[Rfam]
RNA sequence: AAAAAAGCAGGGGCCUCUUGCCUCCGUGAAUGGGCCUCUCGUAAACUUCAGGAAAAUCAUUGAGCAUUGAUAUUGGGUGAACCUCUGUUUUUGCCUUUGUGGUUUGUGGUUGAAAGUUCAGUAAAUGAUCCAACAUUC
Dot-bracket structure: ....(((...((.(((...............))).))........)))...............(.((((.(......(((((.(.............................).)))))...).)))).).......

Background
Shown here is a 138-nucleotide RNA sequence from Trema andersonii, a member of the family "Small nucleolar RNA snoR74". Its family is annotated with RNA processing and nucleolus in the Gene Ontology. Lineage of the source: Eukaryota > Viridiplantae > Streptophytina > Euphyllophyta > Trema. Rfam 15.1 lists 1,404 matches to the family in 223 species.